RNA sequence: GACCAAUCUUUUACAUUACCAGGGCCUUCCACAAGACCCGAGGUACAAUUUUUGGAGACUUGUUCAUUAGAACAAGUUA
Numbered sequence: 001g002a003c004c005a006a007u008c009u010u011u012u013a014c015a016u017u018a019c020c021a022g023g024g025c026c027u028u029c030c031a032c033a034a035g036a037c038c039c040g041a042g043g044u045a046c047a048a049u050u051u052u053u054g055g056a057g058a059c060u061u062g063u064u065c066a067u068u069a070g071a072a073c074a075a076g077u078u079a
Base pairs, nucleotide, nucleotide: 022039023038024037026035027034028033057078058077059076060075061074062073063072064071065070
RNA: SmY spliceosomal RNA